[Rfam]
RNA sequence: AAUGUCCUUCAGGGCAGGGUGAAAGUCCCUACCGGCGGUAAAGUCCGCGAGCCUAUUUGGCAGAACUGGUGCAAUUCCAGUACCGACAGUAAAGUCUGGAUGAAAGAAGGAAAAG
Numbered sequence: 001a002a003u004g005u006c007c008u009u010c011a012g013g014g015c016a017g018g019g020u021g022a023a024a025g026u027c028c029c030u031a032c033c034g035g036c037g038g039u040a041a042a043g044u045c046c047g048c049g050a051g052c053c054u055a056u057u058u059g060g061c062a063g064a065a066c067u068g069g070u071g072c073a074a075u076u077c078c079a080g081u082a083c084c085g086a087c088a089g090u091a092a093a094g095u096c097u098g099g100a101u102g103a104a105a106g107a108a109g110g111a112a113a114a115g
Stems, first nucleotide, its partner, number of pairs: 003113001005111006017029003031095002033085002035048004043083002051061003065081005087098003

Rfam assigns this 115-nucleotide RNA sequence from Alkaliphilus sp. B6464 to the family "FMN riboswitch aptamer (RFN element)". Pairs were carried over by alignment from the consensus structure, which is taken from published work. Its family is annotated with FMN binding in the Gene Ontology. NCBI's taxonomy places the organism under Bacteria, Bacillota, Clostridia, Peptostreptococcales, Alkaliphilus.